[Rfam]
A member of the RNA family "Fluoride riboswitch aptamer (crcB RNA motif)" from Thermobaculum terrenum, 61 nucleotides long.

RNA sequence: AUAACAUAAGGCGAUGAGGCUCGCCUUGAACCGCCGUUGUGCUGAUGGCCUCUACCCUUCU
Numbered sequence: 001a002u003a004a005c006a007u008a009a010g011g012c013g014a015u016g017a018g019g020c021u022c023g024c025c026u027u028g029a030a031c032c033g034c035c036g037u038u039g040u041g042c043u044g045a046u047g048g049c050c051u052c053u054a055c056c057c058u059u060c061u
Stems, first nucleotide, its partner, number of pairs: 010025004016052006033042002
Pairs were carried over by alignment from the consensus structure, which is taken from published work. It scores 46 bits against the family's covariance model.